[Rfam]
RNA sequence: UCUAGAGGUACUUCUACUAAAAUCGCCACGUCCUGUGGCAACGUAGAAGUCAGCACAUCCUGUGCA
Dot-bracket structure: ..........(((((((.......(((((.....)))))...)))))))...((((.....)))).
The family of this 66-nucleotide sequence from Paenisporosarcina antarctica is "Bacillaceae-1 RNA". Pairs were carried over by alignment from the consensus structure, which is taken from published work. The match comes from Rfam's covariance-model search (67 bits). NCBI's taxonomy places the organism under Bacteria, Bacillota, Bacilli, Caryophanales, Paenisporosarcina.